A member of the RNA family "mir-16 microRNA precursor family" from Striga hermonthica, 88 nucleotides long. The literature on the family includes a 2020 paper in Mol Cell by Partin et al., "Cryo-EM Structures of Human Drosha and DGCR8 in Complex with Primary MicroRNA".

Nucleotides: 088
Base pairs, nucleotide, nucleotide: 001088002087003086005084006083007082011078012077013076014075015074016073017072018071020069022067023066024065025064026063027062028061029060030059031058032057033056034055035054
Number, partner (000 for none) and nucleotide at each position: 001088c002087c003086a004000c005084c006083g007082c008000u009000u010000a011078u012077g013076u014075g015074g016073c017072a018071u019000g020069c021000a022067c023066a024065c025064a026063u027062u028061g029060g030059u031058g032057a033056u034055g035054u036000u037000a038000a039000u040000a041000u042000g043000u044000u045000c046000a047000a048000a049000a050000a051000a052000a053000u054035a055034u056033a057032u058031c059030a060029c061028c062027a063026a064025u065024g066023u067022g068000u069020g070000c071018a072017u073016g074015c075014c076013a077012c078011a079000u080000a081000a082007g083006c084005g085000g086003u087002g088001g